[Rfam]
RNA: Arthropod 7SK RNA
RNA sequence: GGAAGUGUGUUCUUUAGUGUGAUGUUACCACUGUAUGUGAUCACUAGCUCUCGUUAGAAGGUCUACAGCACGUGACGUCACGCGCUCGUUGCCAGGCAACGCUCCUUGUAAUGUGCGCUGCGGACGCUCGCCCGCGCGGCUGCGACGGCUUAGUGGCGCACGUUCCUUGGGCUGCCUUCCUGAACCUUACGCGGUUUUAGUUAACUCGUUAGCUUAGCUCCGGUUAAAUUGAGCACUUCCAUGUAAUGGCGGCGAGAAUACUCGAUUGCCAGAUUUUUGA
Numbered sequence: 001g002g003a004a005g006u007g008u009g010u011u012c013u014u015u016a017g018u019g020u021g022a023u024g025u026u027a028c029c030a031c032u033g034u035a036u037g038u039g040a041u042c043a044c045u046a047g048c049u050c051u052c053g054u055u056a057g058a059a060g061g062u063c064u065a066c067a068g069c070a071c072g073u074g075a076c077g078u079c080a081c082g083c084g085c086u087c088g089u090u091g092c093c094a095g096g097c098a099a100c101g102c103u104c105c106u107u108g109u110a111a112u113g114u115g116c117g118c119u120g121c122g123g124a125c126g127c128u129c130g131c132c133c134g135c136g137c138g139g140c141u142g143c144g145a146c147g148g149c150u151u152a153g154u155g156g157c158g159c160a161c162g163u164u165c166c167u168u169g170g171g172c173u174g175c176c177u178u179c180c181u182g183a184a185c186c187u188u189a190c191g192c193g194g195u196u197u198u199a200g201u202u203a204a205c206u207c208g209u210u211a212g213c214u215u216a217g218c219u220c221c222g223g224u225u226a227a228a229u230u231g232a233g234c235a236c237u238u239c240c241a242u243g244u245a246a247u248g249g250c251g252g253c254g255a256g257a258a259u260a261c262u263c264g265a266u267u268g269c270c271a272g273a274u275u276u277u278u279g280a
Base pairs, nucleotide, nucleotide: 001240002239003238004237005236006235007234008233019081020080021079022078023077031068032067033066035064039063040062041061042060044057045056046055248270249269250268251267252266